[Rfam]
RNA: MIR8565 microRNA precursor family
Organism: Amborella trichopoda
RNA sequence: CCCCCACCCAUGUGUGUAGGACCCCAAAGGAUCACAAUUAAAGUUGGCAUGAAUCUCUAGAAAAGUUAUCACAUGGGUGUGGGAUUUGAAUUUUCUAUAGAUCCGUGCCAAAUUUAAUAGUGAUCCUUUGGGGUCCUACACAUAUGGGUGGGGG
Numbered sequence: 001c002c003c004c005c006a007c008c009c010a011u012g013u014g015u016g017u018a019g020g021a022c023c024c025c026a027a028a029g030g031a032u033c034a035c036a037a038u039u040a041a042a043g044u045u046g047g048c049a050u051g052a053a054u055c056u057c058u059a060g061a062a063a064a065g066u067u068a069u070c071a072c073a074u075g076g077g078u079g080u081g082g083g084a085u086u087u088g089a090a091u092u093u094u095c096u097a098u099a100g101a102u103c104c105g106u107g108c109c110a111a112a113u114u115u116a117a118u119a120g121u122g123a124u125c126c127u128u129u130g131g132g133g134u135c136c137u138a139c140a141c142a143u144a145u146g147g148g149u150g151g152g153g154g
Stems, first nucleotide, its partner, number of pairs: 002153012015140014030125003034121002037118006044111008053102004058097007066089003069082005